Rfam assigns this 503-nucleotide part of an RNA from Sugiyamaella lignohabitans to the family "Eukaryotic large subunit ribosomal RNA".
Lineage of the source: Eukaryota > Dikarya > Ascomycota > Trichomonascaceae > Sugiyamaella.
The base pairs follow the family's consensus structure, which is taken from published work.
RNA sequence: UAGAAUAAUGUAGAUAAGGGAAGUCGGCAAAAUAGAUCCGUAACUUCGGGAAAAGGAUUGGCUCUAAGGGUCGAGUGUUUUGGGUCUUGUUUCAGAACCCGAGGAACCUGGACGGAACUGUGUGGGAUUCACGUUUCACAUGGAGCUGACCGGGAUCCUUCGGCGGACGUGCUUGACAGGUAAUUUAUUAUCGUUCCGAUUCACACCAAACGACUAACUUAGAACUGGUACGGACAAGGGGAAUCUGACUGUCUAAUUAAAACAUAGCAUUGCGAUGGUCAGAAAGUGAUGUUGACGCAAUGUGAUUUCUGCCCAGUGCUCUGAAUGUCAAAGUGAAGAAAUUCAACCAAGCGCGGGUAAACGGCGGGAGUAACUAUGACUCUCUUAAGGUAGCCAAAUGCCUCGUCAUCUAAUUAGUGACGCGCAUGAAUGGAUUAACGAGAUUCCCACUGUCCCUAUCUACUAUCUAGCGAAACCACAGCCAAGGGAACGGGCUUGGCAGA
Numbered sequence: 001u002a003g004a005a006u007a008a009u010g011u012a013g014a015u016a017a018g019g020g021a022a023g024u025c026g027g028c029a030a031a032a033u034a035g036a037u038c039c040g041u042a043a044c045u046u047c048g049g050g051a052a053a054a055g056g057a058u059u060g061g062c063u064c065u066a067a068g069g070g071u072c073g074a075g076u077g078u079u080u081u082g083g084g085u086c087u088u089g090u091u092u093c094a095g096a097a098c099c100c101g102a103g104g105a106a107c108c109u110g111g112a113c114g115g116a117a118c119u120g121u122g123u124g125g126g127a128u129u130c131a132c133g134u135u136u137c138a139c140a141u142g143g144a145g146c147u148g149a150c151c152g153g154g155a156u157c158c159u160u161c162g163g164c165g166g167a168c169g170u171g172c173u174u175g176a177c178a179g180g181u182a183a184u185u186u187a188u189u190a191u192c193g194u195u196c197c198g199a200u201u202c203a204c205a206c207c208a209a210a211c212g213a214c215u216a217a218c219u220u221a222g223a224a225c226u227g228g229u230a231c232g233g234a235c236a237a238g239g240g241g242a243a244u245c246u247g248a249c250u251g252u253c254u255a256a257u258u259a260a261a262a263c264a265u266a267g268c269a270u271u272g273c274g275a276u277g278g279u280c281a282g283a284a285a286g287u288g289a290u291g292u293u294g295a296c297g298c299a300a301u302g303u304g305a306u307u308u309c310u311g312c313c314c315a316g317u318g319c320u321c322u323g324a325a326u327g328u329c330a331a332a333g334u335g336a337a338g339a340a341a342u343u344c345a346a347c348c349a350a351g352c353g354c355g356g357g358u359a360a361a362c363g364g365c366g367g368g369a370g371u372a373a374c375u376a377u378g379a380c381u382c383u384c385u386u387a388a389g390g391u392a393g394c395c396a397a398a399u400g401c402c403u404c405g406u407c408a409u410c411u412a413a414u415u416a417g418u419g420a421c422g423c424g425c426a427u428g429a430a431u432g433g434a435u436u437a438a439c440g441a442g443a444u445u446c447c448c449a450c451u452g453u454c455c456c457u458a459u460c461u462a463c464u465a466u467c468u469a470g471c472g473a474a475a476c477c478a479c480a481g482c483c484a485a486g487g488g489a490a491c492g493g494g495c496u497u498g499g500c501a502g503a
Stems, first nucleotide, its partner, number of pairs: 001469004010463007018455003035059005044049001060226002063223006069215005075204003080199004084177003089172002099163002101160005107154005113148003118143011227231001239448007246440002250264003267303008278290004307434003311365003316362002318358004323354001326353003334345004366384006385389001405421005482499005